[Rfam]
RNA sequence: GGGCUAAUGAUGAUAGAAACAAUUUAUCUUAGCGGAUUUCAAUGAGACCAUUUUGGGUCUAUGAACUGCUUAUUGUUACACACACUGAAGCCC
Numbered sequence: 001g002g003g004c005u006a007a008u009g010a011u012g013a014u015a016g017a018a019a020c021a022a023u024u025u026a027u028c029u030u031a032g033c034g035g036a037u038u039u040c041a042a043u044g045a046g047a048c049c050a051u052u053u054u055g056g057g058u059c060u061a062u063g064a065a066c067u068g069c070u071u072a073u074u075g076u077u078a079c080a081c082a083c084a085c086u087g088a089a090g091c092c093c
Base pairs, nucleotide, nucleotide: 001093002092003091004090005089

A member of the RNA family "Small nucleolar RNA R11/Z151" from Kingdonia uniflora, 93 nucleotides long. A search with the family's covariance model found it, with a score of 83 bits. By type it is a C/D-box small nucleolar RNA. Pairs were carried over by alignment from the consensus structure, which was predicted with PFOLD. Its family is annotated with RNA processing and nucleolus in the Gene Ontology. The source organism's lineage runs through Eukaryota, Streptophyta, Magnoliopsida, Circaeasteraceae and Kingdonia.